[Rfam]
RNA sequence: GCAGGUGAAUGCAACGUCAAGCGAUGGGCGUUGCGCUCCAUAUUGUCUUACUUCCUUUUUUGAAUUACUGCAUAGCAUUUUUAAUUCAUACAGGCCGGCGUAAGCCGGCUUUU
Numbered sequence: 001g002c003a004g005g006u007g008a009a010u011g012c013a014a015c016g017u018c019a020a021g022c023g024a025u026g027g028g029c030g031u032u033g034c035g036c037u038c039c040a041u042a043u044u045g046u047c048u049u050a051c052u053u054c055c056u057u058u059u060u061u062g063a064a065u066u067a068c069u070g071c072a073u074a075g076c077a078u079u080u081u082u083a084a085u086u087c088a089u090a091c092a093g094g095c096c097g098g099c100g101u102a103a104g105c106c107g108g109c110u111u112u113u
Stems, first nucleotide, its partner, number of pairs: 001046004007038002010035009062087006069077003094109006
The record is a 113-nucleotide RNA from Erwinia sp. 198, which matches "Fumarate/nitrate reductase regulator sRNA" in Rfam.
Pairs were carried over by alignment from the consensus structure, which is taken from published work.
By type it is a small RNA.